The record is a 203-nucleotide RNA sequence from Oryza sativa, which matches "MIR812 microRNA precursor family" in Rfam.
RNA sequence: UAUAAGGGAUUUUAAGAUUUUGCUUGCAACGUUUGACCACUCGUCUUAUUCAAAUUUUUUUAAAAUUAUUAUUUAUUUUAUCUGUGACUUACUUUAUUAUCUACAGUACUUUAAGUGUGACUUUUUGUUUUUUAUAUUUGCAAAAAAAAUUUAAAUAAGACGAGUGGUCAAACGUUGCAAAUAAAAACUCAAAAUCCCUUAUA
Numbered sequence: 001u002a003u004a005a006g007g008g009a010u011u012u013u014a015a016g017a018u019u020u021u022g023c024u025u026g027c028a029a030c031g032u033u034u035g036a037c038c039a040c041u042c043g044u045c046u047u048a049u050u051c052a053a054a055u056u057u058u059u060u061u062a063a064a065a066u067u068a069u070u071a072u073u074u075a076u077u078u079u080a081u082c083u084g085u086g087a088c089u090u091a092c093u094u095u096a097u098u099a100u101c102u103a104c105a106g107u108a109c110u111u112u113a114a115g116u117g118u119g120a121c122u123u124u125u126u127g128u129u130u131u132u133u134a135u136a137u138u139u140g141c142a143a144a145a146a147a148a149a150u151u152u153a154a155a156u157a158a159g160a161c162g163a164g165u166g167g168u169c170a171a172a173c174g175u176u177g178c179a180a181a182u183a184a185a186a187a188c189u190c191a192a193a194a195u196c197c198c199u200u201a202u203a
Stems, first nucleotide, its partner, number of pairs: 025179006032172018

Lineage of the source: Eukaryota > Streptophytina > Liliopsida > Oryzoideae > Oryza sativa.